[Rfam]
Rfam assigns this 158-nucleotide RNA from Roseburia sp. CAG:50 to the family "FMN riboswitch aptamer (RFN element)". NCBI's taxonomy places the organism under Bacteria, Bacillati, Clostridia, Lachnospirales, Roseburia. Its family is annotated with FMN binding in the Gene Ontology. The literature on the family includes a 2002 paper in Nucleic Acids Res by Vitreschak et al., "Regulation of riboflavin biosynthesis and transport genes in bacteria by transcriptional and translational attenuation". The family's consensus secondary structure is taken from published work.

RNA sequence: AGAGAUCUUCAGGGCAGGGUGAUCUGAACAGAAUGAACUUCGAGUCAGAGAGUCCCGACCGGCGGUAAAGCCCGCGAGCGUGAAAGCGUUGAUUUGGUGAUUCUGAUCAGCAGAAGAUUCCAAAGCCGACAGUAUAGUCUGGAUGAAAGAAGAACAAG
Number, nucleotide and partner (000 for none) at each position: 001a000002g000003a000004g155005a000006u153007c152008u151009u150010c149011a000012g000013g000014g000015c000016a000017g056018g055019g054020u000021g000022a000023u000024c000025u000026g000027a000028a000029c000030a000031g000032a000033a000034u000035g000036a000037a000038c000039u000040u000041c000042g000043a000044g000045u000046c000047a000048g000049a000050g000051a000052g000053u000054c019055c018056c017057g000058a138059c137060c128061g127062g075063c074064g073065g072066u000067a000068a000069a000070g126071c125072c065073c064074g063075c062076g000077a000078g089079c088080g087081u000082g000083a000084a000085a000086g000087c080088g079089u078090u000091g000092a000093u124094u123095u122096g121097g120098u000099g000100a000101u000102u000103c000104u000105g000106a000107u000108c000109a000110g000111c000112a000113g000114a000115a000116g000117a000118u000119u000120c097121c096122a095123a094124a093125g071126c070127c061128g060129a000130c141131a140132g139133u000134a000135u000136a000137g059138u058139c132140u131141g130142g000143a000144u000145g000146a000147a000148a000149g010150a009151a008152g007153a006154a000155c004156a000157a000158g000